[Rfam]
RNA sequence: UGCUGGUCAUCACAUCGACGAAUUUGGAUUGCUGCUCGCAGAUAAUGCGGGUAAUCCGCAGACGAUCCUCAUGGGUAAGUAGAUUGAGGUAAUUAUGCGCCAGCUCGUUACUGAGAAUAUUCGUGCCGUCAUUAAUCCGCAGAAUGCAAAUCCCCACCGGGGCGGAUGCCACGAUUUUGCGGUUGAACUGUUCGUUUUCUUCUAAUUGAAACGCAUUGACUUCGGCGGGCAACAGCAUUUUACGCUCAAAAACCCACGCCAGCACAAACAGCAAGAUGGCCGACAGCGCGUUGAGCAGCGCCAUAUUCAUUAUCAGCCCGCCGAUAUGGGACAGUAACACCUUUAACGGCAGCGAAUAAAUAAUGCUGAACGCGGUGGGCGGCAGGUUUUUUUUCAGAAUAAUUUCAUCAUAGCCGUUCACAUAGCCAAAGUAAUUAUGUUCUAUCGGAUAGCUGUUCACCGAAGAGGCGUGGCGCCCUCCCCCUUCGG
Number, nucleotide and partner (000 for none) at each position: 001u000002g104003c103004u102005g101006g100007u099008c097009a096010u095011c000012a093013c000014a090015u089016c088017g000018a000019c000020g000021a085022a084023u083024u000025u000026g000027g000028a000029u082030u081031g080032c079033u078034g000035c000036u000037c000038g076039c075040a000041g000042a072043u071044a000045a069046u000047g066048c000049g000050g063051g000052u061053a000054a000055u000056c000057c000058g000059c000060a000061g052062a000063c050064g000065a000066u047067c000068c000069u045070c000071a043072u042073g000074g000075g039076u038077a000078a033079g032080u031081a030082g029083a023084u022085u021086g000087a000088g016089g015090u014091a000092a000093u012094u000095a010096u009097g008098c000099g007100c006101c005102a004103g003104c002105u000106c488107g487108u000109u000110a000111c000112u000113g481114a000115g479116a000117a000118u000119a000120u473121u472122c000123g471124u470125g469126c468127c000128g000129u466130c465131a000132u000133u000134a000135a000136u000137c000138c000139g000140c000141a000142g153143a000144a151145u150146g000147c000148a000149a000150a145151u144152c000153c142154c000155c000156a000157c385158c000159g383160g000161g000162g380163c379164g000165g000166a376167u375168g000169c000170c372171a000172c000173g000174a000175u000176u229177u228178u227179g226180c225181g000182g223183u000184u219185g000186a217187a216188c000189u000190g214191u213192u000193c000194g000195u211196u210197u209198u000199c208200u000201u000202c000203u000204a000205a000206u000207u000208g199209a197210a196211a195212c000213g191214c190215a000216u187217u186218g000219a184220c000221u000222u000223c182224g000225g180226c179227g178228g177229g176230c000231a000232a000233c368234a367235g366236c365237a364238u363239u362240u000241u000242a000243c000244g259245c258246u000247c000248a000249a000250a000251a000252a000253c000254c000255c000256a000257c000258g245259c244260c000261a000262g000263c000264a000265c000266a000267a000268a000269c000270a000271g000272c000273a000274a000275g000276a000277u000278g000279g302280c000281c000282g000283a000284c000285a000286g000287c000288g000289c000290g000291u000292u000293g000294a000295g000296c000297a000298g000299c000300g000301c000302c279303a000304u000305a000306u000307u000308c000309a000310u000311u000312a000313u000314c000315a000316g357317c000318c000319c354320g353321c352322c000323g350324a000325u000326a000327u345328g344329g343330g342331a000332c000333a000334g000335u000336a000337a000338c000339a000340c000341c000342u330343u329344u328345a327346a000347c000348g000349g000350c323351a000352g321353c320354g319355a000356a000357u316358a000359a000360a000361u000362a239363a238364u237365g236366c235367u234368g233369a000370a000371c000372g170373c000374g000375g167376u166377g000378g000379g163380c162381g000382g000383c159384a000385g157386g000387u000388u000389u000390u000391u000392u000393u000394u000395c000396a000397g419398a418399a417400u416401a000402a000403u413404u412405u000406c000407a000408u000409c000410a000411u000412a404413g403414c000415c000416g400417u399418u398419c397420a000421c439422a438423u437424a436425g435426c000427c000428a000429a000430a000431g000432u000433a000434a000435u425436u424437a423438u422439g421440u000441u463442c462443u000444a000445u000446c000447g458448g457449a456450u455451a000452g000453c000454u000455g450456u449457u448458c447459a000460c000461c000462g442463a441464a000465g130466a129467g000468g126469c125470g124471u123472g121473g120474c000475g000476c000477c000478c000479u115480c000481c113482c000483c000484c000485u000486u000487c107488g106489g000
Soft rot Enterobacteriaceae Rev 24 asRNA: a 489-nucleotide sequence from Brenneria sp. EniD312.
The literature on the family includes a 2016 paper in BMC Genomics by Kwenda et al., "Discovery and profiling of small RNAs responsive to stress conditions in the plant pathogen Pectobacterium atrosepticum".
The base pairs follow the family's consensus structure, which was predicted with RNAfold.
About the family: From bacteria cultured under starvation conditions.
By type it is an antisense RNA.
Rfam links the family to the GO term cellular response to starvation.